[Rfam]
Nucleotides: 067
Stems, first nucleotide, its partner, number of pairs: 011040005018029004044063003048059004
Number, partner (000 for none) and nucleotide at each position: 001000g002000a003000a004000g005000c006000g007000g008000g009000a010000a011040c012039c013038c014037g015036g016000c017000a018029c019028g020027g021026c022000u023000c024000a025000g026021g027020c028019c029018g030000g031000u032000c033000a034000g035000a036015c037014c038013g039012g040011g041000a042000g043000u044063g045062c046061c047000c048059c049058a050057c051056u052000a053000c054000a055000a056051g057050g058049u059048g060000a061046g062045g063044c064000g065000g066000c067000a
A member of the RNA family "Transposase-2 RNA" from Frankia sp. QA3, 67 nucleotides long. The sequence is in the family's curated seed alignment.